[Rfam]
RNA sequence: ACCGCCGAAUCCUGCCGCUGUCCGGAUACCUCAACCAUUCAUCCAUUCGGCAGGAGCGGGGGACCCAGGUAAGCCGCCGAGCCGCGAACGCGGAUCGGCUAGGGGUGAAGCCGCAUUCGUGCGGCCGGGCAUCUCCAGCCCGAACCCGACAGCUCACCUCGCAGGCGACGGAGAGGAAUUCA
Numbered sequence: 001a002c003c004g005c006c007g008a009a010u011c012c013u014g015c016c017g018c019u020g021u022c023c024g025g026a027u028a029c030c031u032c033a034a035c036c037a038u039u040c041a042u043c044c045a046u047u048c049g050g051c052a053g054g055a056g057c058g059g060g061g062g063a064c065c066c067a068g069g070u071a072a073g074c075c076g077c078c079g080a081g082c083c084g085c086g087a088a089c090g091c092g093g094a095u096c097g098g099c100u101a102g103g104g105g106u107g108a109a110g111c112c113g114c115a116u117u118c119g120u121g122c123g124g125c126c127g128g129g130c131a132u133c134u135c136c137a138g139c140c141c142g143a144a145c146c147c148g149a150c151a152g153c154u155c156a157c158c159u160c161g162c163a164g165g166c167g168a169c170g171g172a173g174a175g176g177a178a179u180u181c182a
Base pairs, nucleotide, nucleotide: 003167004166005165006164010055011054012053013052014051015050016049017048056162057161058160059159060158061157066102103147104146105145111124112123113122114121127141128140129139130138
Dot-bracket structure: ..((((...((((((((..............................))))))))((((((....(...................................)(((.....((((......))))..((((.......))))...))).........)))))).))))...............
Notes:
The record is a 182-nucleotide sequence from Streptomyces montanisoli, which matches "c-di-AMP riboswitch aptamer (ydaO/yuaA leader)" in Rfam.